The family of this 86-nucleotide RNA from Ktedonobacter racemifer is "tRNA".

RNA sequence: GGAGGAGUCUCAUAGUGGUCUAGUGAGCACGACUGGAAAUCGUGUAAGGUGAUGAGCCUUCGCGGGUUCGAAUCCCGCCUCCUCCG
Numbered sequence: 001g002g003a004g005g006a007g008u009c010u011c012a013u014a015g016u017g018g019u020c021u022a023g024u025g026a027g028c029a030c031g032a033c034u035g036g037a038a039a040u041c042g043u044g045u046a047a048g049g050u051g052a053u054g055a056g057c058c059u060u061c062g063c064g065g066g067u068u069c070g071a072a073u074c075c076c077g078c079c080u081c082c083u084c085c086g
Base pairs, nucleotide, nucleotide: 001085002084003083004082005081006080007079010026011025012024013023028044029043030042031041032040062078063077064076065075066074

Description
It scores 55 bits against the family's covariance model. NCBI's taxonomy places the organism under Bacteria, Ktedonobacteria, Ktedonobacteraceae, Ktedonobacter, Ktedonobacter racemifer.